[Rfam]
RNA sequence: AGGUGUUACAGCUCUUCUAGAAUUUGUCUAGCAAGUUUUCCGGUCUCUAUGGGAAGACACAC
Dot-bracket structure: ..................................(((((((.((....)).)))))))....
This 62-nucleotide RNA from Otolemur garnettii belongs to the Rfam family "U7 small nuclear RNA". On this family, see Spycher et al., Nucleic Acids Res 1994: "3' end processing of mouse histone pre-mRNA: evidence for additional base-pairing between U7 snRNA and pre-mRNA". Taxonomically the source falls in Otolemur (Eukaryota, Teleostomi, Sarcopterygii, Amniota). It scores 49 bits against the family's covariance model. Rfam describes the family as follows. Animal histone pre-mRNAs are spliced by a different mechanism than nuclear pre-mRNAs and self-splicing introns. This processing involves the U7 snRNP, which contains only one RNA species: U7. The family has 49 seed sequences and 10,439 matches in Rfam 15.1.